[Rfam]
RNA sequence: AAAAUAGGGGGAUAAAAUGUAGCCUAUGUUAUGUUCAAUAACAUAGGCUACAUUUUAUCCCCCUAUUCU
Dot-bracket structure: ..(((((.(((.((..(((((.((((((.............)))))).)))))..)).))).)))))..